[Rfam]
RNA sequence: UCCUCGCUCAAAGGAUCGCAUUCAAAGCUCACACACAGAGAAUUCCUUAAUUCUCUCCUCUUCUCAUCCGAGAAGAGCCCGCUUUGGGAGAAAGUCCCCGGACACCCUGUCCUUUUCUUUUUUACAAAGUCGGUCAGGCAAUGCGGAAACGCGCCGCCAUAAAAGCAAUUUGAUAGCGGCUUACUGCCCUAUUCCCUCCCGAUGCCGAGUCAAUACCCGACGCCCCUUGGGUGGACACAAUGGUGGUGUGGACUGGUGUUGGAGAGGGGUUUAUUGGGUUGCCUUUCGUCGUGUUUGGAUAGUCAUGCGAUUGCUCGGUUCUGUAUUGGAACUGGGUAACUCAAUGGGGCUCAUUCUUGAGGCGAGG
Numbered sequence: 001u002c003c004u005c006g007c008u009c010a011a012a013g014g015a016u017c018g019c020a021u022u023c024a025a026a027g028c029u030c031a032c033a034c035a036c037a038g039a040g041a042a043u044u045c046c047u048u049a050a051u052u053c054u055c056u057c058c059u060c061u062u063c064u065c066a067u068c069c070g071a072g073a074a075g076a077g078c079c080c081g082c083u084u085u086g087g088g089a090g091a092a093a094g095u096c097c098c099c100g101g102a103c104a105c106c107c108u109g110u111c112c113u114u115u116u117c118u119u120u121u122u123u124a125c126a127a128a129g130u131c132g133g134u135c136a137g138g139c140a141a142u143g144c145g146g147a148a149a150c151g152c153g154c155c156g157c158c159a160u161a162a163a164a165g166c167a168a169u170u171u172g173a174u175a176g177c178g179g180c181u182u183a184c185u186g187c188c189c190u191a192u193u194c195c196c197u198c199c200c201g202a203u204g205c206c207g208a209g210u211c212a213a214u215a216c217c218c219g220a221c222g223c224c225c226c227u228u229g230g231g232u233g234g235a236c237a238c239a240a241u242g243g244u245g246g247u248g249u250g251g252a253c254u255g256g257u258g259u260u261g262g263a264g265a266g267g268g269g270u271u272u273a274u275u276g277g278g279u280u281g282c283c284u285u286u287c288g289u290c291g292u293g294u295u296u297g298g299a300u301a302g303u304c305a306u307g308c309g310a311u312u313g314c315u316c317g318g319u320u321c322u323g324u325a326u327u328g329g330a331a332c333u334g335g336g337u338a339a340c341u342c343a344a345u346g347g348g349g350c351u352c353a354u355u356c357u358u359g360a361g362g363c364g365a366g367g
Stems, first nucleotide, its partner, number of pairs: 002367006008360004014312006022088001023086006038055006093351002096349004109135001111133002177207004182202001209283001211281001215279006224269004314336008